[Rfam]
RNA sequence: AGAGGCUCUCGUGGCCUGGGUGGAACGCUUGCCUCGUUGCCAUGGCAACAAAGCGAGCAUUCCACCAGGCCACUCACGCUGUCCGC
Numbered sequence: 001a002g003a004g005g006c007u008c009u010c011g012u013g014g015c016c017u018g019g020g021u022g023g024a025a026c027g028c029u030u031g032c033c034u035c036g037u038u039g040c041c042a043u044g045g046c047a048a049c050a051a052a053g054c055g056a057g058c059a060u061u062c063c064a065c066c067a068g069g070c071c072a073c074u075c076a077c078g079c080u081g082u083c084c085g086c
Stems, first nucleotide, its partner, number of pairs: 004083003011073006019066007027058006036049005
This 86-nucleotide sequence from Myotis myotis belongs to the Rfam family "mir-9195 microRNA precursor family". The family's consensus secondary structure was predicted with RNAalifold.